[Rfam]
RNA sequence: AACAGCAACCCAAACAAAAGCAUUUACUGGUUUUAUCUGCAGUAAGUGCUUUUUGUUGGGUUAUCUAUUA
Numbered sequence: 001a002a003c004a005g006c007a008a009c010c011c012a013a014a015c016a017a018a019a020g021c022a023u024u025u026a027c028u029g030g031u032u033u034u035a036u037c038u039g040c041a042g043u044a045a046g047u048g049c050u051u052u053u054u055g056u057u058g059g060g061u062u063a064u065c066u067a068u069u070a
Base pairs, nucleotide, nucleotide: 004066005065007062008061009060010059011058014056015055016054017053018052019050020049021048022047023046024045026043027042028041
RNA: miR-430 microRNA precursor family
Organism: Oncorhynchus kisutch